[Rfam]
RNA sequence: GUCUUAUCGAGAGAGGUGGAGGGACUGGCCUGAUGAUACCCGGCAGCCGCUGAUAAUAUUAGAAGGUGCUAAAUCCAGCAGAACAUAUUCUGGAAGAUAAGGU
Numbered sequence: 001g002u003c004u005u006a007u008c009g010a011g012a013g014a015g016g017u018g019g020a021g022g023g024a025c026u027g028g029c030c031u032g033a034u035g036a037u038a039c040c041c042g043g044c045a046g047c048c049g050c051u052g053a054u055a056a057u058a059u060u061a062g063a064a065g066g067u068g069c070u071a072a073a074u075c076c077a078g079c080a081g082a083a084c085a086u087a088u089u090c091u092g093g094a095a096g097a098u099a100a101g102g103u
Base pairs, nucleotide, nucleotide: 001103002102003101004100005099006098007097008096013041015040016039017038021031022030023029025078026077027076028075042070043069044068045067047066048065050062051061052060074095079092080091081090082089083088